[Rfam]
G-CSF factor stem-loop destabilising element (SLDE): a 97-nucleotide RNA from Trichechus manatus. This family represents the granulocyte colony-stimulating factor stem-loop destabilising element (G-CSF SLDE). The base pairs follow the family's consensus structure, which is taken from published work. Lineage of the source: Eukaryota > Bilateria > Gnathostomata > Sarcopterygii > Trichechus manatus. Rfam classes the family as a cis-regulatory element.
Nucleotides: 097
Base pairs, nucleotide, nucleotide: 003026004025005024006023007022008021011019035061041058042057043056044055045054046053047052068086069085070084071083072082073081074080075079
Number, partner (000 for none) and nucleotide at each position: 001000c002000c003026a004025a005024g006023g007022g008021c009000a010000c011019c012000c013000a014000c015000c016000u017000u018000a019011g020000a021008g022007c023006c024005c025004u026003u027000g028000g029000g030000a031000g032000c033000a034000c035061u036000a037000g038000g039000a040000g041058g042057u043056c044055u045054c046053c047052c048000a049000c050000g051000u052047g053046g054045g055044a056043g057042a058041c059000a060000a061035g062000a063000c064000a065000u066000c067000c068086c069085u070084g071083u072082u073081u074080a075079a076000u077000a078000u079075u080074u081073a082072a083071a084070c085069a086068g087000c088000a089000g090000u091000g092000u093000u094000c095000c096000c097000c